[Rfam]
RNA sequence: CCAGGCGUUAAGGGUCCCUUGACGCCGGGUAUCUUAUUGAUGCCUCUGUGUUUUCGGCAGACCCUCGCUGAAUUCAUGGAACCUCUUCUACACGUCGACAAGAUAUGUUUCUUGUAUUUGUGCCAGCCCGUCUUCAGGCUGGCUUUUUUUAUG
Numbered sequence: 001c002c003a004g005g006c007g008u009u010a011a012g013g014g015u016c017c018c019u020u021g022a023c024g025c026c027g028g029g030u031a032u033c034u035u036a037u038u039g040a041u042g043c044c045u046c047u048g049u050g051u052u053u054u055c056g057g058c059a060g061a062c063c064c065u066c067g068c069u070g071a072a073u074u075c076a077u078g079g080a081a082c083c084u085c086u087u088c089u090a091c092a093c094g095u096c097g098a099c100a101a102g103a104u105a106u107g108u109u110u111c112u113u114g115u116a117u118u119u120g121u122g123c124c125a126g127c128c129c130g131u132c133u134u135c136a137g138g139c140u141g142g143c144u145u146u147u148u149u150u151a152u153g
Stems, first nucleotide, its partner, number of pairs: 005025004010020003028044006053072006098115006122143007